[Rfam]
RNA sequence: GCGGAUGGCCGGACGGCCGCGGGUCCUCGGAUCCGAGGAAAGUCCGGACUCCAUGAGGCAACGGUGCCGGGUAACGCCCGGCCGGGGCAACCCGAGGGAAAGCGCCACAGAGAAGAGACCGCCCAAGCCGCAAGGCGCGGGUAAGGGUGAAACGGUGGGGUAAGAGCCCACCGCGGGACGGGCAACCGGACCGGCAAGGCAAGCCCCACCGGGAGCAAUGCCGAAUAGGGGCCUCGCGCGGGCAUGAUCGGCUCUCGCCGAUAUCGCCGCAGGGACGUCUCAGCCCAGAGGCCCGGGUUGGCAGCUCGACCCCGCCGGUAACGGACGGGGCAGAUGAAUGGCCGUCGAAGGGGGCAACCCCGGAACAGAAUCCGGCUUACAGGCCAUCCGCGCAA
Numbered sequence: 001g002c003g004g005a006u007g008g009c010c011g012g013a014c015g016g017c018c019g020c021g022g023g024u025c026c027u028c029g030g031a032u033c034c035g036a037g038g039a040a041a042g043u044c045c046g047g048a049c050u051c052c053a054u055g056a057g058g059c060a061a062c063g064g065u066g067c068c069g070g071g072u073a074a075c076g077c078c079c080g081g082c083c084g085g086g087g088c089a090a091c092c093c094g095a096g097g098g099a100a101a102g103c104g105c106c107a108c109a110g111a112g113a114a115g116a117g118a119c120c121g122c123c124c125a126a127g128c129c130g131c132a133a134g135g136c137g138c139g140g141g142u143a144a145g146g147g148u149g150a151a152a153c154g155g156u157g158g159g160g161u162a163a164g165a166g167c168c169c170a171c172c173g174c175g176g177g178a179c180g181g182g183c184a185a186c187c188g189g190a191c192c193g194g195c196a197a198g199g200c201a202a203g204c205c206c207c208a209c210c211g212g213g214a215g216c217a218a219u220g221c222c223g224a225a226u227a228g229g230g231g232c233c234u235c236g237c238g239c240g241g242g243c244a245u246g247a248u249c250g251g252c253u254c255u256c257g258c259c260g261a262u263a264u265c266g267c268c269g270c271a272g273g274g275a276c277g278u279c280u281c282a283g284c285c286c287a288g289a290g291g292c293c294c295g296g297g298u299u300g301g302c303a304g305c306u307c308g309a310c311c312c313c314g315c316c317g318g319u320a321a322c323g324g325a326c327g328g329g330g331c332a333g334a335u336g337a338a339u340g341g342c343c344g345u346c347g348a349a350g351g352g353g354g355c356a357a358c359c360c361c362g363g364a365a366c367a368g369a370a371u372c373c374g375g376c377u378u379a380c381a382g383g384c385c386a387u388c389c390g391c392g393c394a395a
Stems, first nucleotide, its partner, number of pairs: 001391010011380001012346007020035006040378003044375005049215004057281002060278001062211005067081005082096001083094004097206002102204002104200003119146002121142004127136003154172006173195001174193003179188003219303004229294006272286003310329003315324003
The family of this 395-nucleotide RNA sequence from Pararhodobacter aggregans is "Bacterial RNase P class A". A search with the family's covariance model found it, with a score of 276 bits. Pairs were carried over by alignment from the consensus structure, which is taken from published work.